[Rfam]
RNA sequence: AGAAUUUUUUUCGAUAUAGAACACUCAUGUCGAUAAAAUCACUUGAAUUCUCU
Dot-bracket structure: ..........(((((((.........)))))))....................
Numbered sequence: 001a002g003a004a005u006u007u008u009u010u011u012c013g014a015u016a017u018a019g020a021a022c023a024c025u026c027a028u029g030u031c032g033a034u035a036a037a038a039u040c041a042c043u044u045g046a047a048u049u050c051u052c053u
Stems, first nucleotide, its partner, number of pairs: 011033007
The record is a 53-nucleotide RNA from Lathyrus oleraceus, which matches "Plastid-atpF group II-D1 intron" in Rfam. The family's consensus secondary structure was predicted with LocARNA. A search with the family's covariance model found it, with a score of 72 bits. The organism belongs to Lathyrus, within Eukaryota. About the family: Plastid atpF is a non-coding RNA (ncRNA) recognised in plastids. It has been reported in the intron group II-D1 region of ATP synthase (atpF) genes. On this family, see Richter et al., Plant Commun 2023: "Retrograde signaling in plants: A critical review focusing on the GUN pathway and beyond".